[Rfam]
RNA sequence: CGUAAUUGAUAAAACCAAUAUAAUUCAACAUACAUCACAUUCGAUUUUGAAGGGAGCGUUAGACAAUGAAAACAUAUCCAUGUAUGACCCAUACACAACAAAAUAAUAUUGUCAUUUUAAUUUUACGCUCAGGACUGGAGCAUUAGUAGAAAUUUUACUAAUCGCUUAAGUCCUAUUUCUAAUUGAAUGGGACUUAAAGA
Numbered sequence: 001c002g003u004a005a006u007u008g009a010u011a012a013a014a015c016c017a018a019u020a021u022a023a024u025u026c027a028a029c030a031u032a033c034a035u036c037a038c039a040u041u042c043g044a045u046u047u048u049g050a051a052g053g054g055a056g057c058g059u060u061a062g063a064c065a066a067u068g069a070a071a072a073c074a075u076a077u078c079c080a081u082g083u084a085u086g087a088c089c090c091a092u093a094c095a096c097a098a099c100a101a102a103a104u105a106a107u108a109u110u111g112u113c114a115u116u117u118u119a120a121u122u123u124u125a126c127g128c129u130c131a132g133g134a135c136u137g138g139a140g141c142a143u144u145a146g147u148a149g150a151a152a153u154u155u156u157a158c159u160a161a162u163c164g165c166u167u168a169a170g171u172c173c174u175a176u177u178u179c180u181a182a183u184u185g186a187a188u189g190g191g192a193c194u195u196a197a198a199g200a
Stems, first nucleotide, its partner, number of pairs: 015199001038189009053126001055124001064111005131174005140166001141164001143161007
RNA: Listeria sRNA rli60